[Rfam]
Shown here is a 224-nucleotide RNA from Pseudoramibacter alactolyticus, a member of the family "raiA RNA". By type it is a riboswitch. The source organism's lineage runs through Bacteria, Bacillota, Eubacteriaceae, Pseudoramibacter and Pseudoramibacter alactolyticus. The sequence is in the family's curated seed alignment.

RNA sequence: CUAUCCCGAGCUGUGGUUGUAAGUCGAAGCCAGUCGCAGGCAAAACGAUCCACGUAAGUUUAACCAAAAAAGCAAAUAAAACGAUCAUGGUGCGGCCUAGAUGUAAGUCCAGCCGCGCGGCUUUGCAUUCUGCGAGGCUGCGGCGAGAGAAGGGGCGUAAGAUAAUAUCAAGCUAAGCUUCCAGCUGGCGGGUGUGGGGGCAAAGACCAGGUCAGUCGGGGUGC
Numbered sequence: 001c002u003a004u005c006c007c008g009a010g011c012u013g014u015g016g017u018u019g020u021a022a023g024u025c026g027a028a029g030c031c032a033g034u035c036g037c038a039g040g041c042a043a044a045a046c047g048a049u050c051c052a053c054g055u056a057a058g059u060u061u062a063a064c065c066a067a068a069a070a071a072g073c074a075a076a077u078a079a080a081a082c083g084a085u086c087a088u089g090g091u092g093c094g095g096c097c098u099a100g101a102u103g104u105a106a107g108u109c110c111a112g113c114c115g116c117g118c119g120g121c122u123u124u125g126c127a128u129u130c131u132g133c134g135a136g137g138c139u140g141c142g143g144c145g146a147g148a149g150a151a152g153g154g155g156c157g158u159a160a161g162a163u164a165a166u167a168u169c170a171a172g173c174u175a176a177g178c179u180u181c182c183a184g185c186u187g188g189c190g191g192g193u194g195u196g197g198g199g200g201c202a203a204a205g206a207c208c209a210g211g212u213c214a215g216u217c218g219g220g221g222u223g224c
Stems, first nucleotide, its partner, number of pairs: 002223008011215003014209005027195001029193001030040001033096006049090002054085001059080004088202001109188005114145003149181004157173002161169003